[Rfam]
RNA sequence: GGACCUGGCGCGUCUGGACCCUUGUACUUCCAAGUACGGAGAGGGUGAAAUGACCCCGACCAACCCUCCCGGCCUCCCGUCGCUCGGACGGGUGAACCAUGCCAACCGGGCUGGAUUUCGGUGGGGUUGCCUGACAUAUGCUCGCCGCGACAACUCCAGAACACGAGACGGCCCCCGCCGGGACUGGCAUCCCGGACGAGGGCCUGACCAUCAAGGAAGUAGCCCUUCCCC
Numbered sequence: 001g002g003a004c005c006u007g008g009c010g011c012g013u014c015u016g017g018a019c020c021c022u023u024g025u026a027c028u029u030c031c032a033a034g035u036a037c038g039g040a041g042a043g044g045g046u047g048a049a050a051u052g053a054c055c056c057c058g059a060c061c062a063a064c065c066c067u068c069c070c071g072g073c074c075u076c077c078c079g080u081c082g083c084u085c086g087g088a089c090g091g092g093u094g095a096a097c098c099a100u101g102c103c104a105a106c107c108g109g110g111c112u113g114g115a116u117u118u119c120g121g122u123g124g125g126g127u128u129g130c131c132u133g134a135c136a137u138a139u140g141c142u143c144g145c146c147g148c149g150a151c152a153a154c155u156c157c158a159g160a161a162c163a164c165g166a167g168a169c170g171g172c173c174c175c176c177g178c179c180g181g182g183a184c185u186g187g188c189a190u191c192c193c194g195g196a197c198g199a200g201g202g203c204c205u206g207a208c209c210a211u212c213a214a215g216g217a218a219g220u221a222g223c224c225c226u227u228c229c230c231c
Stems, first nucleotide, its partner, number of pairs: 007212002010209001016069003080095006110146001112144003170204005176198002180193004215229005
Overview
The family of this 231-nucleotide RNA sequence from Streptomyces sp. WM4235 is "Streptomyces sRNA 4677". From the family's description: Located in the intergenic region between anti-sigma factor SCO4677 gene and a putative regulatory protein gene SCO4676. scr4677 expression requires the SCO4677 activity and scr4677 sRNA itself seem to affect the levels of the SCO4676-associated transcripts. Taxonomically the source falls in Streptomyces (Bacteria, Bacillati, Actinomycetota, Streptomycetaceae). The match comes from Rfam's covariance-model search (122 bits). Rfam classes the family as a small RNA. Pairs were carried over by alignment from the consensus structure.